Rfam assigns this 73-nucleotide sequence from Ascidiaceihabitans donghaensis to the family "Singlet oxygen resistance RNA X". Rfam's curators write: SorX (RSs2461)like SorY is a singlet oxygen induced sRNA that counteracts oxidative stress by targeting mRNA for a transporter in Rhodobacter. It also has an impact on resistance against organic hydroperoxides. It targets SD sequence of potA mRNA via an aSD sequence. The aSD sequence and some neighbouring nucleotides are identical to the one of SorY (targets takP mRNA). Taxonomically the source falls in Ascidiaceihabitans (Bacteria, Pseudomonadota, Alphaproteobacteria, Rhodobacterales). The family's RNA type in Rfam is small RNA. For this family Rfam cites "Photooxidative stress-induced and abundant small RNAs in Rhodobacter sphaeroides" (Berghoff et al., Mol Microbiol, 2009). The base pairs follow the family's consensus structure.
RNA sequence: UCCCGCCGUACGUCCGGGUUAUGACGUACACCUCCCUGUUGGACUUGGCCGGGCCUUGCGCCCGGUCUUUUUU
Numbered sequence: 001u002c003c004c005g006c007c008g009u010a011c012g013u014c015c016g017g018g019u020u021a022u023g024a025c026g027u028a029c030a031c032c033u034c035c036c037u038g039u040u041g042g043a044c045u046u047g048g049c050c051g052g053g054c055c056u057u058g059c060g061c062c063c064g065g066u067c068u069u070u071u072u073u
Base pairs, nucleotide, nucleotide: 008029009028010027011026012025013024014023047067048066049065050064051063052062053061054060
It scores 88 bits against the family's covariance model.